[Rfam]
RNA sequence: GCGGAAGGCUGGAUGAUCGCGGUCCCUUUAUCGGGGUCGAGGAAAGUCCGGACUCCCAAAAGGAACGGUGCCGGGUAACGCCCGGGCGGGGUAACCCGACGGACAGCGCCACAGAAAUGAAACCGCUUCGGGCUUUCCGGAGUAAGGGUGAAACGGUGGGGUAAGAGCCCACCGCGUCCUUGGCAACAAGGGUGGCACGGCAAGCCCCACCGGGAGCAAUGCCAAAUAGGGACCGCGCGUCGCAAGACAGGGCUUCUUUUGCCCGAGCAGGUCCGGGUUGGCAGCUAUAGCCGUCGCGGCAACGUGACGGUCAGAGGAAUGAUCAUCCAGAGGCAUCACGCCUUGGACAGAAUCCGGCUUACAGGCCUUCCGCGCGU
Numbered sequence: 001g002c003g004g005a006a007g008g009c010u011g012g013a014u015g016a017u018c019g020c021g022g023u024c025c026c027u028u029u030a031u032c033g034g035g036g037u038c039g040a041g042g043a044a045a046g047u048c049c050g051g052a053c054u055c056c057c058a059a060a061a062g063g064a065a066c067g068g069u070g071c072c073g074g075g076u077a078a079c080g081c082c083c084g085g086g087c088g089g090g091g092u093a094a095c096c097c098g099a100c101g102g103a104c105a106g107c108g109c110c111a112c113a114g115a116a117a118u119g120a121a122a123c124c125g126c127u128u129c130g131g132g133c134u135u136u137c138c139g140g141a142g143u144a145a146g147g148g149u150g151a152a153a154c155g156g157u158g159g160g161g162u163a164a165g166a167g168c169c170c171a172c173c174g175c176g177u178c179c180u181u182g183g184c185a186a187c188a189a190g191g192g193u194g195g196c197a198c199g200g201c202a203a204g205c206c207c208c209a210c211c212g213g214g215a216g217c218a219a220u221g222c223c224a225a226a227u228a229g230g231g232a233c234c235g236c237g238c239g240u241c242g243c244a245a246g247a248c249a250g251g252g253c254u255u256c257u258u259u260u261g262c263c264c265g266a267g268c269a270g271g272u273c274c275g276g277g278u279u280g281g282c283a284g285c286u287a288u289a290g291c292c293g294u295c296g297c298g299g300c301a302a303c304g305u306g307a308c309g310g311u312c313a314g315a316g317g318a319a320u321g322a323u324c325a326u327c328c329a330g331a332g333g334c335a336u337c338a339c340g341c342c343u344u345g346g347a348c349a350g351a352a353u354c355c356g357g358c359u360u361a362c363a364g365g366c367c368u369u370c371c372g373c374g375c376g377u
Base pairs, nucleotide, nucleotide: 001373002372003371004370005369006368007367008366009365010364011362012327013326014325015324016323017322018321020039021038022037023036024035025034026033044360045359046358048357049356050355051354052353053216054215055214056213061259062258063257066212067211068210069209070208071085072084073083074082075081086100087098088097089096090095101207102206106205107204108201109200110199123147124146125143126142127141128140129139130138131137132136155173156172157171158170159169160168174196175194176193177192178191179190180189181188182187220283221282222281223280230274231273232272233271234270250264251263252262253261291310292309293308294307295306296305297304298303